[Rfam]
RNA: mir-7 microRNA precursor family
RNA sequence: UGGCUGGCCCCGUCUGGAAGACUAGUGAUUUUGUUGUUGUCUUACUGCGCUCAACAACAAAUCCCAGUCUGCCGAAUGGUGCCAGCCA
Numbered sequence: 001u002g003g004c005u006g007g008c009c010c011c012g013u014c015u016g017g018a019a020g021a022c023u024a025g026u027g028a029u030u031u032u033g034u035u036g037u038u039g040u041c042u043u044a045c046u047g048c049g050c051u052c053a054a055c056a057a058c059a060a061a062u063c064c065c066a067g068u069c070u071g072c073c074g075a076a077u078g079g080u081g082c083c084a085g086c087c088a
Stems, first nucleotide, its partner, number of pairs: 002087007010079004015074003019070005025065001027063005033058006